[Rfam]
RNA sequence: GGGGACCUACGGGGCCCUACACAUCUAAAACAGGGUUCACCCCCUGCAAAGCAACGGAAGACAGAAA
Numbered sequence: 001g002g003g004g005a006c007c008u009a010c011g012g013g014g015c016c017c018u019a020c021a022c023a024u025c026u027a028a029a030a031c032a033g034g035g036u037u038c039a040c041c042c043c044c045u046g047c048a049a050a051g052c053a054a055c056g057g058a059a060g061a062c063a064g065a066a067a
Stems, first nucleotide, its partner, number of pairs: 001018004006014003030045001033044003